This 69-nucleotide sequence from Ursus americanus belongs to the Rfam family "Small nucleolar RNA SNORD73". The family has 25 seed sequences and 769 matches in Rfam 15.1. For this family Rfam cites "A novel snoRNA (U73) is encoded within the introns of the human and mouse ribosomal protein S3a genes" (Rebane et al., Gene, 1998). The family's RNA type in Rfam is C/D-box small nucleolar RNA. It scores 73 bits against the family's covariance model. Rfam links the family to the GO terms RNA processing and nucleolus.

RNA sequence: AAUAGAUGAUGACAAGAUGUUUCGGUCCCAGAUGAUGUGCACUGAUUUUGUUAACAUCUUUCUGAUGUU
Number, nucleotide and partner (000 for none) at each position: 001a069002a068003u067004a066005g000006a000007u000008g000009a000010u000011g000012a000013c000014a000015a000016g000017a000018u000019g000020u000021u000022u000023c000024g000025g000026u000027c000028c000029c000030a000031g000032a000033u000034g000035a000036u000037g000038u000039g000040c000041a000042c000043u000044g000045a000046u000047u000048u000049u000050g000051u000052u000053a000054a000055c000056a000057u000058c000059u000060u000061u000062c000063u000064g000065a000066u004067g003068u002069u001